[Rfam]
RNA sequence: ACAAAGGCUCUUUUAAGAGCCACUCUAUCCACAAUAAAAAGAGCUGU
Numbered sequence: 001a002c003a004a005a006g007g008c009u010c011u012u013u014u015a016a017g018a019g020c021c022a023c024u025c026u027a028u029c030c031a032c033a034a035u036a037a038a039a040a041g042a043g044c045u046g047u
Stems, first nucleotide, its partner, number of pairs: 006021006